[Rfam]
This 102-nucleotide RNA from Paenibacillus tyrphae belongs to the Rfam family "Purine riboswitch aptamer". NCBI's taxonomy places the organism under Bacteria, Bacillota, Caryophanales, Paenibacillaceae, Paenibacillus. From the family's description: Riboswitches are metabolite binding domains within certain messenger RNAs that serve as precision sensors for their corresponding targets.

RNA sequence: CCUUAAAAAAUCGAAUAGUCUCGUAUAAAGUCGGGAAUAUGGCCCGAAAGUUUCUACCCGAAAACCUUAAAUUUUUGGACUACGAGUGAGCGAAGUUUCAGG
Numbered sequence: 001c002c003u004u005a006a007a008a009a010a011u012c013g014a015a016u017a018g019u020c021u022c023g024u025a026u027a028a029a030g031u032c033g034g035g036a037a038u039a040u041g042g043c044c045c046g047a048a049a050g051u052u053u054c055u056a057c058c059c060g061a062a063a064a065c066c067u068u069a070a071a072u073u074u075u076u077g078g079a080c081u082a083c084g085a086g087u088g089a090g091c092g093a094a095g096u097u098u099c100a101g102g
Base pairs, nucleotide, nucleotide: 020086021085022084023083024082025081031047032046033045034044035043058078059077060076061075062074063073064072
Overview:
The base pairs follow the family's consensus structure, which is taken from published work. A search with the family's covariance model found it, with a score of 80 bits.